[Rfam]
RNA sequence: UGUAACAGCAACUCCAUGUGGAAGGUUUGUGUCUUCCAGUGGAGCUGCUGUUGCGUG
Number, nucleotide and partner (000 for none) at each position: 001u000002g054003u053004a052005a051006c050007a049008g048009c047010a000011a000012c044013u043014c042015c041016a040017u039018g000019u038020g037021g036022a000023a000024g000025g000026u000027u000028u000029g000030u000031g000032u000033c000034u000035u000036c021037c020038a019039g017040u016041g015042g014043a013044g012045c000046u000047g009048c008049u007050g006051u005052u004053g003054c002055g000056u000057g000
Rfam assigns this 57-nucleotide sequence from Ictalurus punctatus to the family "mir-194 microRNA precursor family". For this family Rfam cites "New microRNAs from mouse and human" (Lagos-Quintana et al., RNA, 2003). The sequence is in the family's curated seed alignment.